The record is a 303-nucleotide sequence from Digitaria exilis, which matches "Plant signal recognition particle RNA" in Rfam. Rfam links the family to the GO terms signal recognition particle, endoplasmic reticulum targeting and SRP-dependent cotranslational protein targeting to membrane, signal sequence recognition. Rfam classes the family as a non-coding RNA gene. Clan: SRP clan.
RNA sequence: GCCGAGCUCAGCAGCGCGAGCUUGUAACCCGAGCGGGGGCGUUAAGGUGGUGUGGACGCUGGUGCAUGGCUGCGGGCCUGGGCCAGUUGCACUAUUGCUGGGCCCGCCCGUUCCAAGUUGGUAGUGGGUCGCUGGGGCUUGUGCGUAAGCUUUGCCUCACGAUCCAUAAUGCGGCAGGCACAGCGUGAGGCUGGCUUCACAGAGCAGCGACCACUGCCCGCUUCCAACGGUGGAAGGAUAACGGGCUGCUGUGCUUCCGGGCCCACCAGGGUCUCGCAGCCUCUCCAGCGGACCACCAUCUUC
Dot-bracket structure: (((((((((........))))))....(((....))))))...(((((((((.(..((.(((.(.(.(.(((((((.(((((((.(..(((.((......((((((.((.(((((.(((((.(((((((((.((((((....((....))...)))))))))))).......(((((......(((....(((......)))....)))....))))).))).)))))..)))))))....))))))..)))))...).))))).....)).)))))))).).)))).))..)))))))))).
Numbered sequence: 001g002c003c004g005a006g007c008u009c010a011g012c013a014g015c016g017c018g019a020g021c022u023u024g025u026a027a028c029c030c031g032a033g034c035g036g037g038g039g040c041g042u043u044a045a046g047g048u049g050g051u052g053u054g055g056a057c058g059c060u061g062g063u064g065c066a067u068g069g070c071u072g073c074g075g076g077c078c079u080g081g082g083c084c085a086g087u088u089g090c091a092c093u094a095u096u097g098c099u100g101g102g103c104c105c106g107c108c109c110g111u112u113c114c115a116a117g118u119u120g121g122u123a124g125u126g127g128g129u130c131g132c133u134g135g136g137g138c139u140u141g142u143g144c145g146u147a148a149g150c151u152u153u154g155c156c157u158c159a160c161g162a163u164c165c166a167u168a169a170u171g172c173g174g175c176a177g178g179c180a181c182a183g184c185g186u187g188a189g190g191c192u193g194g195c196u197u198c199a200c201a202g203a204g205c206a207g208c209g210a211c212c213a214c215u216g217c218c219c220g221c222u223u224c225c226a227a228c229g230g231u232g233g234a235a236g237g238a239u240a241a242c243g244g245g246c247u248g249c250u251g252u253g254c255u256u257c258c259g260g261g262c263c264c265a266c267c268a269g270g271g272u273c274u275c276g277c278a279g280c281c282u283c284u285c286c287a288g289c290g291g292a293c294c295a296c297c298a299u300c301u302u303c
Stems, first nucleotide, its partner, number of pairs: 001040003004023006028037003044302009054293001057290002060287003064284001066282001068280001070279007078271002080264005086258001089254003093251002101247006108237002111235005117228005123222003126165006133159006143150002173218005184209003191202003